c-di-GMP-I riboswitch aptamer: a 73-nucleotide RNA from Desulfonema ishimotonii. Rfam links the family to the GO term cyclic-di-GMP binding. Pairs were carried over by alignment from the consensus structure, which is taken from published work.
[Rfam]
RNA sequence: UCUUGAUAAAGCCAAUCCUGUAUGACAGGUGCGGAAAGCCACGGGUUUCAGAAGAAACAGCCGGGUUGCCUUG
Numbered sequence: 001u002c003u004u005g006a007u008a009a010a011g012c013c014a015a016u017c018c019u020g021u022a023u024g025a026c027a028g029g030u031g032c033g034g035a036a037a038g039c040c041a042c043g044g045g046u047u048u049c050a051g052a053a054g055a056a057a058c059a060g061c062c063g064g065g066u067u068g069c070c071u072u073g
Base pairs, nucleotide, nucleotide: 012034013033017029018028019027020026021025037067038066039065040064042063043062044061045058046057047056